[Rfam]
A member of the RNA family "TPP riboswitch aptamer (THI element)" from Metallococcus carri, 112 nucleotides long. Taxonomically the source falls in Metallococcus (Bacteria, Bacillati, Actinomycetes, Micrococcales).
RNA sequence: GGGAAGUUCCGCGGGAGCCGAGCCACCCGGGCUCGGCUGAGAGGGCACUAGGUGCCGACCGCUCGAACCUGAUGCGGGUUAUGCCGUCGAAGGGAGGAACGAUGCGGGUCAU
Number, nucleotide and partner (000 for none) at each position: 001g000002g000003g000004a000005a000006g100007u099008u098009c097010c096011g062012c061013g060014g059015g000016a000017g037018c036019c035020g034021a033022g032023c031024c030025a000026c000027c000028c000029g000030g024031g023032c022033u021034c020035g019036g018037c017038u000039g000040a000041g000042a000043g000044g056045g055046c054047a053048c052049u000050a000051g000052g048053u047054g046055c045056c044057g000058a000059c014060c013061g012062c011063u000064c000065g000066a000067a000068c093069c092070u091071g000072a000073u000074g087075c086076g085077g084078g000079u000080u000081a000082u000083g000084c077085c076086g075087u074088c000089g000090a000091a070092g069093g068094g000095a000096g010097g009098a008099a007100c006101g000102a000103u000104g000105c000106g000107g000108g000109u000110c000111a000112u000